[Rfam]
Nucleotides: 350
Stems, first nucleotide, its partner, number of pairs: 001346010011335001012315007020037002023034004042333003046330005051220004058252004063216005068082005083097001084095004098211002103209002105205002120150002122146003127143002129140004158176006177200001178198005183192003224272004234263006243257005280297007
Number, partner (000 for none) and nucleotide at each position: 001346a002345g003344a004343g005342c006341u007340g008339g009338c010337c011335a012315g013314a014313c015312a016311a017310u018309c019000g020037c021036c022000g023034c024033c025032u026031g027000u028000u029000u030000a031026c032025a033024g034023g035000g036021g037020g038000a039000g040000g041000a042333a043332a044331g045000u046330c047329c048328g049327g050326g051220c052219u053218c054217c055000a056000u057000a058252g059251g060250g061249c062000a063216g064215g065214g066213u067212g068082c069081c070080a071079g072078g073000u074000a075000a076000c077000g078072c079071c080070u081069g082068g083097g084095c085094g086093g087092u088000g089000u090000a091000a092087g093086c094085c095084g096000a097083c098211g099210a100000c101000u102000a103209g104208u105205g106204c107000a108000g109000c110000a111000g112000a113000g114000a115000g116000u117000a118000a119000a120150c121149c122146g123145c124144c125000g126000a127143u128142g129140g130139c131138u132137g133000c134000u135000u136000g137132c138131a139130g140129c141000a142128c143127a144124g145123g146122u147000a148000a149121g150120g151000g152000u153000g154000a155000a156000a157000g158176g159175g160174u161173g162172c163171g164000g165000u166000a167000a168000g169000a170000g171163c172162g173161c174160a175159c176158c177200g178198c179197g180196c181195a182194a183192c184191u185190g186000g187000u188000a189000a190185c191184a192183g193000u194182u195181u196180g197179u198178g199000g200177c201000a202000c203000g204106g205105u206000a207000a208104a209103c210099u211098c212067c213066a214065c215064c216063c217054g218053g219052a220051g221000c222000a223000a224272g225271g226270u227269c228000a229000a230000a231000u232000a233000g234263g235262g236261g237260u238259u239258c240000u241000u242000u243257g244256g245255c246254g247253c248000g249061g250060c251059c252058c253247g254246c255245g256244u257243u258239g259238a260237a261236c262235c263234c264000g265000g266000g267000u268000a269227g270226a271225c272224u273000g274000c275000u276000u277000g278000a279000g280297g281296g282295u283294c284293a285292g286291g287000g288000c289000a290000a291286c292285c293284u294283g295282a296281u297280c298000a299000c300000u301000a302000g303000a304000u305000g306000a307000a308000u309018g310017a311016u312015u313014g314013u315012c316000c317000a318000c319000g320000a321000c322000a323000g324000a325000a326050c327049c328048c329047g330046g331044c332043u333042u334000a335011u336000c337010g338009g339008c340007c341006g342005g343004c344003u345002c346001u347000c348000c349000a350000c